[Rfam]
RNA sequence: UGCCUUGAAACCUGCAACUGCCUCCCCUAUAUCAAUCUUGUUCGGGUUCGCUCGGACUAUGGACAUAAACGCGCAUGUAAUACACGGAUCGGACCCGGGGGCGGUACCCGGCGGCUCCACCAAUCAUCCUAUCGUUUGGGAUCUUGGGGCCGAAAUAGGAUCGACGAACGUUUAAAGAUGUAAGCUUUGUCUCGGUGAGCUACCACCGUUAUCGGUGCGAAACGUACAGUUGCAAACGACAACCGUGCUCCGGUGGCUCUUGCUGCGUAAGCAGUUCGAGUACCGAAACCUAACUCCUUGCGCCUAGCAGCGUAAGGCGGGGCCCGCAGGAGCCUUGCAACAGAAUCCUGCACC
Numbered sequence: 001u002g003c004c005u006u007g008a009a010a011c012c013u014g015c016a017a018c019u020g021c022c023u024c025c026c027c028u029a030u031a032u033c034a035a036u037c038u039u040g041u042u043c044g045g046g047u048u049c050g051c052u053c054g055g056a057c058u059a060u061g062g063a064c065a066u067a068a069a070c071g072c073g074c075a076u077g078u079a080a081u082a083c084a085c086g087g088a089u090c091g092g093a094c095c096c097g098g099g100g101g102c103g104g105u106a107c108c109c110g111g112c113g114g115c116u117c118c119a120c121c122a123a124u125c126a127u128c129c130u131a132u133c134g135u136u137u138g139g140g141a142u143c144u145u146g147g148g149g150c151c152g153a154a155a156u157a158g159g160a161u162c163g164a165c166g167a168a169c170g171u172u173u174a175a176a177g178a179u180g181u182a183a184g185c186u187u188u189g190u191c192u193c194g195g196u197g198a199g200c201u202a203c204c205a206c207c208g209u210u211a212u213c214g215g216u217g218c219g220a221a222a223c224g225u226a227c228a229g230u231u232g233c234a235a236a237c238g239a240c241a242a243c244c245g246u247g248c249u250c251c252g253g254u255g256g257c258u259c260u261u262g263c264u265g266c267g268u269a270a271g272c273a274g275u276u277c278g279a280g281u282a283c284c285g286a287a288a289c290c291u292a293a294c295u296c297c298u299u300g301c302g303c304c305u306a307g308c309a310g311c312g313u314a315a316g317g318c319g320g321g322g323c324c325c326g327c328a329g330g331a332g333c334c335u336u337g338c339a340a341c342a343g344a345a346u347c348c349u350g351c352a353c354c
Stems, first nucleotide, its partner, number of pairs: 040057007061192005071185002073181004085170002089167003095111005112152007193208004199218002202216003320335004326351006

Rfam assigns this 354-nucleotide RNA from Thioclava sp. SK-1 to the family "Alphaproteobacteria transfer-messenger RNA". The organism belongs to Thioclava, within Bacteria.